[Rfam]
RNA sequence: GCCCGUAACCACGGGAGCGCGCACCGAGCGUGCUGAGAGGACGGCUGGGGCCGUCGACCGGAUGAACCUGACCGGGUAAUGCCGGCGUAGGGAGUGAUGAAGAUGGCUGUA
Numbered sequence: 001g002c003c004c005g006u007a008a009c010c011a012c013g014g015g016a017g018c019g020c021g022c023a024c025c026g027a028g029c030g031u032g033c034u035g036a037g038a039g040g041a042c043g044g045c046u047g048g049g050g051c052c053g054u055c056g057a058c059c060g061g062a063u064g065a066a067c068c069u070g071a072c073c074g075g076g077u078a079a080u081g082c083c084g085g086c087g088u089a090g091g092g093a094g095u096g097a098u099g100a101a102g103a104u105g106g107c108u109g110u111a
Stems, first nucleotide, its partner, number of pairs: 006100001008098001010096001012060003017033005040055005067091004072085004
RNA: TPP riboswitch aptamer (THI element)